[Rfam]
RNA sequence: UUUGAAAUUGUCAAAAAUAAUGUGUCCAUUUUCCACUUUCAAACUGACAUCCAGAAAUUUACCUGCUAACAAUGACGAUGGAUCGAUUAAUUUUCUGGAUGUCAGUUUGAAAGUGGAAAAUGGACACAUUAAUUUUGACAAUU
Numbered sequence: 001u002u003u004g005a006a007a008u009u010g011u012c013a014a015a016a017a018u019a020a021u022g023u024g025u026c027c028a029u030u031u032u033c034c035a036c037u038u039u040c041a042a043a044c045u046g047a048c049a050u051c052c053a054g055a056a057a058u059u060u061a062c063c064u065g066c067u068a069a070c071a072a073u074g075a076c077g078a079u080g081g082a083u084c085g086a087u088u089a090a091u092u093u094u095c096u097g098g099a100u101g102u103c104a105g106u107u108u109g110a111a112a113g114u115g116g117a118a119a120a121u122g123g124a125c126a127c128a129u130u131a132a133u134u135u136u137g138a139c140a141a142u143u
Base pairs, nucleotide, nucleotide: 011138012137013136014135015134024125025124026123027122028121029120030119031118032117033116034115035114036113037112038111039110040109041108042107043106044105045104046103047102048101049100050099051098052097053096054095
Dot-bracket structure: ..........(((((........(((((((((((((((((((((((((((((((........................................)))))))))))))))))))))))))))))))........))))).....